[Rfam]
RNA sequence: CAUCGCGAUGCUCUUCAAACAUGGAGAGAUCGUGAUGCGGAUACUAUCAAAAAAGCAGUUGAAGGAGUUGGUCUUGUACUCACCUCAGCAUAUCGCACGAAUGGAAAAAGCCGGGAACUUCCCAAAGCGGAUACGCCUCGGCCCAAACCGCGUGGGAUGGGUCGAAGAUGAAGUGCUGGAAUGGCUUCAGCCCCGGCUUGAACACCGAUAGCCUCUUACGGCGUUCCUCCUUAGGAGCGUGGGAUGGCCAAGUGUGCACAACUU
Numbered sequence: 001c002a003u004c005g006c007g008a009u010g011c012u013c014u015u016c017a018a019a020c021a022u023g024g025a026g027a028g029a030u031c032g033u034g035a036u037g038c039g040g041a042u043a044c045u046a047u048c049a050a051a052a053a054a055g056c057a058g059u060u061g062a063a064g065g066a067g068u069u070g071g072u073c074u075u076g077u078a079c080u081c082a083c084c085u086c087a088g089c090a091u092a093u094c095g096c097a098c099g100a101a102u103g104g105a106a107a108a109a110g111c112c113g114g115g116a117a118c119u120u121c122c123c124a125a126a127g128c129g130g131a132u133a134c135g136c137c138u139c140g141g142c143c144c145a146a147a148c149c150g151c152g153u154g155g156g157a158u159g160g161g162u163c164g165a166a167g168a169u170g171a172a173g174u175g176c177u178g179g180a181a182u183g184g185c186u187u188c189a190g191c192c193c194c195g196g197c198u199u200g201a202a203c204a205c206c207g208a209u210a211g212c213c214u215c216u217u218a219c220g221g222c223g224u225u226c227c228u229c230c231u232u233a234g235g236a237g238c239g240u241g242g243g244a245u246g247g248c249c250a251a252g253u254g255u256g257c258a259c260a261a262c263u264u
Base pairs, nucleotide, nucleotide: 001037002036003035004034005033006032007031008030009029012027013026014025015024016023017022055197059196060195064188065187066186067185068184069183070182072180073179074178077175078174079173080172081170082169083167086164088162089161091159092158093157094156096154097153098152103148110142111141113138114137115136122130123129199250200249203246204245205243219241220240224237225236226235227234228233251263252262253261